[Rfam]
RNA: Small nucleolar RNA SNORA33
Organism: Jaculus jaculus
RNA sequence: AAGCCAAUUAAUCUUUUUAUCUGAAUGUGUUUCUGCAGAAAUUUAGAAACAACUGGCAUUAGCCAUGCCAUUUUAUGAACCUUAAGGACAACUGAGGUCAUUAUAGUCCUUCAAAAUGGCUACAGUA
Numbered sequence: 001a002a003g004c005c006a007a008u009u010a011a012u013c014u015u016u017u018u019a020u021c022u023g024a025a026u027g028u029g030u031u032u033c034u035g036c037a038g039a040a041a042u043u044u045a046g047a048a049a050c051a052a053c054u055g056g057c058a059u060u061a062g063c064c065a066u067g068c069c070a071u072u073u074u075a076u077g078a079a080c081c082u083u084a085a086g087g088a089c090a091a092c093u094g095a096g097g098u099c100a101u102u103a104u105a106g107u108c109c110u111u112c113a114a115a116a117u118g119g120c121u122a123c124a125g126u127a
Base pairs, nucleotide, nucleotide: 002054003053012039013038014037016035067120068119069118070117079107080106083103084102085101087099088098089097